[Rfam]
RNA sequence: GUGGGCUCCGUGCCAGAUGCGCGUUUACACUGCACCGUUCUAAAGAAUUCUGUAAAUGCACUAUCUGGUACGACAGCCCAC
Numbered sequence: 001g002u003g004g005g006c007u008c009c010g011u012g013c014c015a016g017a018u019g020c021g022c023g024u025u026u027a028c029a030c031u032g033c034a035c036c037g038u039u040c041u042a043a044a045g046a047a048u049u050c051u052g053u054a055a056a057u058g059c060a061c062u063a064u065c066u067g068g069u070a071c072g073a074c075a076g077c078c079c080a081c
Stems, first nucleotide, its partner, number of pairs: 002080004009072009019061001021059009
Dot-bracket structure: .((((...(((((((((.(.(((((((((.....................))))))))).)..)))))))))....)))).
The record is an 81-nucleotide RNA sequence from Tribolium castaneum, which matches "mir-277 microRNA precursor family" in Rfam. The sequence is in the family's curated seed alignment. Its family is annotated with miRNA-mediated post-transcriptional gene silencing and RISC complex in the Gene Ontology. On this family, see Liu et al., BMC Genomics 2010: "MicroRNAs of Bombyx mori identified by Solexa sequencing". NCBI's taxonomy places the organism under Eukaryota, Metazoa, Altocrustacea, Neuropteroidea, Tribolium.